[Rfam]
RNA: Small nucleolar RNA U19
RNA sequence: AAAUGGCUUAGUUAGGAGGCACAUAUUAAAACGUCGAUGCGGUAGUGUUUUAUUACCAGCGUCUUGUUACUCAGGUCUCUUGAGGGGAUUAUUUGCCGUUAUCAAUCUUCCUCCAAGCAACCUUAGACAUGU
Numbered sequence: 001a002a003a004u005g006g007c008u009u010a011g012u013u014a015g016g017a018g019g020c021a022c023a024u025a026u027u028a029a030a031a032c033g034u035c036g037a038u039g040c041g042g043u044a045g046u047g048u049u050u051u052a053u054u055a056c057c058a059g060c061g062u063c064u065u066g067u068u069a070c071u072c073a074g075g076u077c078u079c080u081u082g083a084g085g086g087g088a089u090u091a092u093u094u095g096c097c098g099u100u101a102u103c104a105a106u107c108u109u110c111c112u113c114c115a116a117g118c119a120a121c122c123u124u125a126g127a128c129a130u131g132u
Base pairs, nucleotide, nucleotide: 004021005020007018008017009016036063037062038061039060040059042056043055044054045053046052070126071125073123074122075121076120079117080116081115082114084113085112086111087110088109091106092105